[Rfam]
Nucleotides: 146
Stems, first nucleotide, its partner, number of pairs: 002041004007037002009034004014029003062140002067135003074128004080122002085114003
Number, partner (000 for none) and nucleotide at each position: 001000a002041g003040g004039c005038a006000g007037c008036c009034c010033c011032u012031u013000g014029g015028c016027c017000u018000g019000a020000u021000c022000g023000a024000g025000a026000u027016g028015g029014c030000a031012a032011a033010g034009g035000a036008g037007g038005u039004g040003u041002u042000g043000u044000u045000u046000u047000g048000c049000u050000c051000g052000g053000a054000g055000a056000u057000c058000a059000a060000a061000g062140c063139u064000u065000u066000u067135g068134c069133u070000c071000u072000u073000c074128a075127g076126a077125u078000a079000c080122g081121c082000u083000g084000a085114g086113a087112a088000g089000u090000a091000u092000g093000g094000g095000g096000g097000g098000g099000u100000u101000u102000c103000u104000c105000c106000u107000u108000c109000u110000u111000c112087u113086u114085c115000u116000c117000u118000g119000a120000u121081g122080c123000g124000g125077g126076u127075c128074u129000a130000g131000u132000a133069a134068g135067c136000u137000u138000u139063a140062g141000u142000a143000c144000a145000a146000g
About this RNA
A member of the RNA family "Small nucleolar RNA snoR77" from Dendrobium catenatum, 146 nucleotides long. The base pairs follow the family's consensus structure, which was predicted with WAR. Its family is annotated with nucleolus and RNA processing in the Gene Ontology. The match comes from Rfam's covariance-model search (88 bits). A reference for the family is Marker et al. (2002), "Experimental RNomics: identification of 140 candidates for small non-messenger RNAs in the plant Arabidopsis thaliana", Curr Biol.